[Rfam]
RNA sequence: UCCGCCGAAGUUUCCCUCAGGAUAGCAGAGAUUCGUAAAGUAGUUUUAUGAGGUAAAGCGAAUGAUUAGAGGCUUGGGGGGCGAAACGCCUUUCACCUAUUCUCAAACUUUAAAUAUGUAAGAAGUCCUUGUUGCUUAAUUGAACUUGGACCUUCGAAUACAGAAUCUCUAGUGGGCCAUUUUUGGUAAGCAGAACUGGCGAUGCGGGAUGAACCGAACGUUAAGUUAAGGUGCCAAAGUGUACGCUUAUUUAGAUACCAUAAAAGGUGUUGGUUCAUCUAGACAGCAGGACGGUGGCCAUGGAAGUCGGAAUCCGCUAAGGAGUGUGUAACAACUCACCUGCCGAAUGAACUAGCCCUGAAAAUGGAUGGCGCUCAAGCGUACCACCUAUACUUAACCUUUAGAGUAAUUUUUUUGUGAUGCUCUAAAGUGUAGGCGGACGUGGAGGUUUGUGUUAAAGCGCUUUGGGCGUGAGCCUGCGUGGAACAACCUCUAGUGCAGAU
Numbered sequence: 001u002c003c004g005c006c007g008a009a010g011u012u013u014c015c016c017u018c019a020g021g022a023u024a025g026c027a028g029a030g031a032u033u034c035g036u037a038a039a040g041u042a043g044u045u046u047u048a049u050g051a052g053g054u055a056a057a058g059c060g061a062a063u064g065a066u067u068a069g070a071g072g073c074u075u076g077g078g079g080g081g082c083g084a085a086a087c088g089c090c091u092u093u094c095a096c097c098u099a100u101u102c103u104c105a106a107a108c109u110u111u112a113a114a115u116a117u118g119u120a121a122g123a124a125g126u127c128c129u130u131g132u133u134g135c136u137u138a139a140u141u142g143a144a145c146u147u148g149g150a151c152c153u154u155c156g157a158a159u160a161c162a163g164a165a166u167c168u169c170u171a172g173u174g175g176g177c178c179a180u181u182u183u184u185g186g187u188a189a190g191c192a193g194a195a196c197u198g199g200c201g202a203u204g205c206g207g208g209a210u211g212a213a214c215c216g217a218a219c220g221u222u223a224a225g226u227u228a229a230g231g232u233g234c235c236a237a238a239g240u241g242u243a244c245g246c247u248u249a250u251u252u253a254g255a256u257a258c259c260a261u262a263a264a265a266g267g268u269g270u271u272g273g274u275u276c277a278u279c280u281a282g283a284c285a286g287c288a289g290g291a292c293g294g295u296g297g298c299c300a301u302g303g304a305a306g307u308c309g310g311a312a313u314c315c316g317c318u319a320a321g322g323a324g325u326g327u328g329u330a331a332c333a334a335c336u337c338a339c340c341u342g343c344c345g346a347a348u349g350a351a352c353u354a355g356c357c358c359u360g361a362a363a364a365u366g367g368a369u370g371g372c373g374c375u376c377a378a379g380c381g382u383a384c385c386a387c388c389u390a391u392a393c394u395u396a397a398c399c400u401u402u403a404g405a406g407u408a409a410u411u412u413u414u415u416u417g418u419g420a421u422g423c424u425c426u427a428a429a430g431u432g433u434a435g436g437c438g439g440a441c442g443u444g445g446a447g448g449u450u451u452g453u454g455u456u457a458a459a460g461c462g463c464u465u466u467g468g469g470c471g472u473g474a475g476c477c478u479g480c481g482u483g484g485a486a487c488a489a490c491c492u493c494u495a496g497u498g499c500a501g502a503u
Stems, first nucleotide, its partner, number of pairs: 001440006011024001013022003027170007044123007056111001057109002063105003068100001070098003075095006082088001125151004131145003176200004181195005205216003220398005226392001230388003239385001241384001244381003265359003269356010286343005292316003298310002317321001322337001326335002399430009441498001443495008452487002460482002468477003
RNA: Eukaryotic large subunit ribosomal RNA, nucleotides 1034 to 1536